Overview: Shown here is a 507-nucleotide sequence from Turnix velox, a member of the family "Vertebrate telomerase RNA". By type it is a non-coding RNA gene. About the family: Telomerase is a ribonucleoprotein reverse transcriptase that synthesises telomeric DNA. Telomerase RNAs differ greatly in sequence and structure between vertebrates, ciliates and yeasts, but they share a 5' pseudoknot structure close to the template sequence. Taxonomically the source falls in Turnix (Eukaryota, Opisthokonta, Deuterostomia, Archelosauria). The literature on the family includes a 2000 paper in Cell by Chen et al., "Secondary structure of vertebrate telomerase RNA". The family is grouped with related families in Rfam's "Telomerase clan".
RNA sequence: ACGCGGCGGGUGGGGAGUCGCGGGUGUCACUAACCCUAAUGGCUGCCGCCACUCUCCCCGCGCUCGCCCGCUGUUUUACUCGCUGACUUUCAGAGGGCGAGGGGAGCAGUGGAGGGGGGGAGGGUUGGGAAGGGGUUCGCCAUCAAAAAACGUCAGCGAAGGGGCUCCUCACCCUGGCCCGACCUGGAGUCCCCGUCGCGCACCCCCCACGCUGGUUGCGGGGUCCUCCUGGGAGGCCCCGUCCAUAGGCCGCGGUCGGCCGGCUGCCGCCACUGCCGCCGCGAAGAGCUAGUCUCUGUCAGCCUCGCCGGCGGCCGGGAGAAAAAAAGAAGGGGACGGAGGGGGUGCGGUUCUUUCCGCUACCCCUUCUUCCUCCUCACCCACCUCCACUUUCUUUUCACGGUGGUGGUGGUGAGGGGGAGGCUCCAGCAGAGCAAAAGGGGAACGGCGCCCACCGGCCCGAGCACCCGCGCCGUGGGGCGCGUGGCUGGCGCCGCCCCGACACUC
Numbered sequence: 001a002c003g004c005g006g007c008g009g010g011u012g013g014g015g016a017g018u019c020g021c022g023g024g025u026g027u028c029a030c031u032a033a034c035c036c037u038a039a040u041g042g043c044u045g046c047c048g049c050c051a052c053u054c055u056c057c058c059c060g061c062g063c064u065c066g067c068c069c070g071c072u073g074u075u076u077u078a079c080u081c082g083c084u085g086a087c088u089u090u091c092a093g094a095g096g097g098c099g100a101g102g103g104g105a106g107c108a109g110u111g112g113a114g115g116g117g118g119g120g121a122g123g124g125u126u127g128g129g130a131a132g133g134g135g136u137u138c139g140c141c142a143u144c145a146a147a148a149a150a151c152g153u154c155a156g157c158g159a160a161g162g163g164g165c166u167c168c169u170c171a172c173c174c175u176g177g178c179c180c181g182a183c184c185u186g187g188a189g190u191c192c193c194c195g196u197c198g199c200g201c202a203c204c205c206c207c208c209a210c211g212c213u214g215g216u217u218g219c220g221g222g223g224u225c226c227u228c229c230u231g232g233g234a235g236g237c238c239c240c241g242u243c244c245a246u247a248g249g250c251c252g253c254g255g256u257c258g259g260c261c262g263g264c265u266g267c268c269g270c271c272a273c274u275g276c277c278g279c280c281g282c283g284a285a286g287a288g289c290u291a292g293u294c295u296c297u298g299u300c301a302g303c304c305u306c307g308c309c310g311g312c313g314g315c316c317g318g319g320a321g322a323a324a325a326a327a328a329g330a331a332g333g334g335g336a337c338g339g340a341g342g343g344g345g346u347g348c349g350g351u352u353c354u355u356u357c358c359g360c361u362a363c364c365c366c367u368u369c370u371u372c373c374u375c376c377u378c379a380c381c382c383a384c385c386u387c388c389a390c391u392u393u394c395u396u397u398u399c400a401c402g403g404u405g406g407u408g409g410u411g412g413u414g415a416g417g418g419g420g421a422g423g424c425u426c427c428a429g430c431a432g433a434g435c436a437a438a439a440g441g442g443g444a445a446c447g448g449c450g451c452c453c454a455c456c457g458g459c460c461c462g463a464g465c466a467c468c469c470g471c472g473c474c475g476u477g478g479g480g481c482g483c484g485u486g487g488c489u490g491g492c493g494c495c496g497c498c499c500c501g502a503c504a505c506u507c
Stems, first nucleotide, its partner, number of pairs: 006180001011171005017165003021161001054106004065099005071093003082157006088150003184429007199349009226321007238311002240307001251283005257278004262271003285297004441499003446496007460487003464483001465480001467478002